Overview: Shown here is a 291-nucleotide RNA sequence from Macaca nemestrina, a member of the family "Mason-Pfizer monkey virus packaging signal". The match comes from Rfam's covariance-model search (165 bits). This family represents a group of sequences that are related to the Mason-Pfizer monkey virus (MPMV) packaging signal. Pairs were carried over by alignment from the consensus structure, which was predicted with PFOLD.
[Rfam]
RNA sequence: UGUCGCCCGAACAGGACCUGAAACGGAGGGACUCCAUGUUGAGGAAGAGGACGCCAAAGUACGUCGACCGCUAACAAAGGACAAAAGGAGUCAAACUUCUGCCGAUCACCGCGGGGAACCUGCCGCGUCAGGAUCGAAGUUAAGUGACGGCAUCCGAAAUGGGACAAGAAUUAGCCAACAUCAAAUAUAUGUAGGACAAUUAAAAAGAGGCUUUAAAGAUACGAGGAGUAAAGUUUAAAGGUAAUGAUUUUGUUUAAAUUUUUUGAUAUUUGUAAAAGAGUACUUGCCCUU
Numbered sequence: 001u002g003u004c005g006c007c008c009g010a011a012c013a014g015g016a017c018c019u020g021a022a023a024c025g026g027a028g029g030g031a032c033u034c035c036a037u038g039u040u041g042a043g044g045a046a047g048a049g050g051a052c053g054c055c056a057a058a059g060u061a062c063g064u065c066g067a068c069c070g071c072u073a074a075c076a077a078a079g080g081a082c083a084a085a086a087g088g089a090g091u092c093a094a095a096c097u098u099c100u101g102c103c104g105a106u107c108a109c110c111g112c113g114g115g116g117a118a119c120c121u122g123c124c125g126c127g128u129c130a131g132g133a134u135c136g137a138a139g140u141u142a143a144g145u146g147a148c149g150g151c152a153u154c155c156g157a158a159a160u161g162g163g164a165c166a167a168g169a170a171u172u173a174g175c176c177a178a179c180a181u182c183a184a185a186u187a188u189a190u191g192u193a194g195g196a197c198a199a200u201u202a203a204a205a206a207g208a209g210g211c212u213u214u215a216a217a218g219a220u221a222c223g224a225g226g227a228g229u230a231a232a233g234u235u236u237a238a239a240g241g242u243a244a245u246g247a248u249u250u251u252g253u254u255u256a257a258a259u260u261u262u263u264u265g266a267u268a269u270u271u272g273u274a275a276a277a278g279a280g281u282a283c284u285u286g287c288c289c290u291u
Base pairs, nucleotide, nucleotide: 006030007029008028012025037051039049040048094141095140096139097137098136106133107131110127111126112125113124114123149165153163154162155161156160172215173213174211175210176209222265223264224263225262226261227260228259229258232250233249235247236246237245275291276290278288280287281286